[Rfam]
RNA sequence: GAGCUUUUAGACUCAUGGGAUUAAGUCACCUGCCUUCAAAGAAAUUAAGAUAAAGCAGGAAACGUCAGUUCGAAUCUGACAAAGCUCA
Numbered sequence: 001g002a003g004c005u006u007u008u009a010g011a012c013u014c015a016u017g018g019g020a021u022u023a024a025g026u027c028a029c030c031u032g033c034c035u036u037c038a039a040a041g042a043a044a045u046u047a048a049g050a051u052a053a054a055g056c057a058g059g060a061a062a063c064g065u066c067a068g069u070u071c072g073a074a075u076c077u078g079a080c081a082a083a084g085c086u087c088a
Stems, first nucleotide, its partner, number of pairs: 001087007010027004029059005064080005